[Rfam]
RNA sequence: GGGAUUAAGCAGAAGCCACCGCUUCUCGCCUUGUGACAUUAAGUUGCCGGGCUAAAAACGUUGAAGACUAUAUUGUAUAGUCGUGAAGCGGGGUGGCAUUGUGCCAUUCCGCUUUUCUGCUGUCUC
Dot-bracket structure: ..........((((((....)))))).(((..(((((.....)))))..)))..................................((((((((((.......)))))))))).............
RNA: Ribosomal protein L20 leader